[Rfam]
RNA sequence: GAGAUCGCGUCCCUAGGCAUCCUCCUCCCAGCCGACGGGCGUGUGACACGCAGGGCAUCCUCCUCCCAGCCCUGUCACGUCGAAACGUCGCCCGCCAGCACCUCCUCCCGCUGGCGGGCGUUCGU
Dot-bracket structure: ......(((.((.(.((..............)).).)).))).......(((((((............))))))).............(((((((((((..........))))))))))).....
Numbered sequence: 001g002a003g004a005u006c007g008c009g010u011c012c013c014u015a016g017g018c019a020u021c022c023u024c025c026u027c028c029c030a031g032c033c034g035a036c037g038g039g040c041g042u043g044u045g046a047c048a049c050g051c052a053g054g055g056c057a058u059c060c061u062c063c064u065c066c067c068a069g070c071c072c073u074g075u076c077a078c079g080u081c082g083a084a085a086c087g088u089c090g091c092c093c094g095c096c097a098g099c100a101c102c103u104c105c106u107c108c109c110g111c112u113g114g115c116g117g118g119c120g121u122u123c124g125u
Stems, first nucleotide, its partner, number of pairs: 007042003011038002014035001016033002050075007089120011
Rfam assigns this 125-nucleotide RNA from Roseibium aggregatum to the family "Alphaproteobacterial ar14". Gene Ontology term of the family: biological process involved in symbiotic interaction. About the family: Smr14C2 was renamed NfeR1 (Nodule Formation Efficiency RNA) highly expressed in salt stress and during the symbiotic interaction on legume roots. The source organism's lineage runs through Bacteria, Pseudomonadota, Alphaproteobacteria, Hyphomicrobiales and Roseibium. A search with the family's covariance model found it, with a score of 61 bits.